[Rfam]
RNA: mir-395 microRNA precursor family
Organism: Trifolium medium
RNA sequence: UUGUCUCUUAGAGUUCCUUUGAACGCUUCAUAUGUAAGGCUAUUUAUCUGGUAAAAAAUUCUUCAGAAAAGAUGGUCCCUUCUUCAAUGAAGUGUUUGGGGGAACUCUUGGGGUCAA
Numbered sequence: 001u002u003g004u005c006u007c008u009u010a011g012a013g014u015u016c017c018u019u020u021g022a023a024c025g026c027u028u029c030a031u032a033u034g035u036a037a038g039g040c041u042a043u044u045u046a047u048c049u050g051g052u053a054a055a056a057a058a059u060u061c062u063u064c065a066g067a068a069a070a071g072a073u074g075g076u077c078c079c080u081u082c083u084u085c086a087a088u089g090a091a092g093u094g095u096u097u098g099g100g101g102g103a104a105c106u107c108u109u110g111g112g113g114u115c116a117a
Stems, first nucleotide, its partner, number of pairs: 005113004011107010022097002024094008034084001